[Rfam]
RNA sequence: AGAAUUUUUUGGCAAACUUGUCGAAAGACAAGGACGCAAAGCUAUGGAUCUAACUAUACCAAAUGACGGUAUAAAUGAUUGCCAAGCCGCAACU
Numbered sequence: 001a002g003a004a005u006u007u008u009u010u011g012g013c014a015a016a017c018u019u020g021u022c023g024a025a026a027g028a029c030a031a032g033g034a035c036g037c038a039a040a041g042c043u044a045u046g047g048a049u050c051u052a053a054c055u056a057u058a059c060c061a062a063a064u065g066a067c068g069g070u071a072u073a074a075a076u077g078a079u080u081g082c083c084a085a086g087c088c089g090c091a092a093c094u
Stems, first nucleotide, its partner, number of pairs: 012037002017032006041087003045084003048079003055073006

c-di-GMP-I riboswitch aptamer: a 94-nucleotide RNA from Propionispora vibrioides.
Its family is annotated with cyclic-di-GMP binding in the Gene Ontology.
It scores 68 bits against the family's covariance model.
NCBI's taxonomy places the organism under Bacteria, Bacillota, Negativicutes, Selenomonadales, Propionispora.